[Rfam]
RNA sequence: ACAGAUAAUGCCAAACCCGUCGUGAGGCGGGGACGGAAAGCCACGGGUCUUUUGGUGAAGACAGCCGGGUUGCCACGG
Numbered sequence: 001a002c003a004g005a006u007a008a009u010g011c012c013a014a015a016c017c018c019g020u021c022g023u024g025a026g027g028c029g030g031g032g033a034c035g036g037a038a039a040g041c042c043a044c045g046g047g048u049c050u051u052u053u054g055g056u057g058a059a060g061a062c063a064g065c066c067g068g069g070u071u072g073c074c075a076c077g078g
Stems, first nucleotide, its partner, number of pairs: 004074001011036002016031006034064001039071004044067003047062003
This 78-nucleotide RNA from Desulfonema ishimotonii belongs to the Rfam family "c-di-GMP-I-GGC riboswitch aptamer". Lineage of the source: Bacteria > Pseudomonadati > Desulfobacterales > Desulfococcaceae > Desulfonema. A search with the family's covariance model found it, with a score of 72 bits.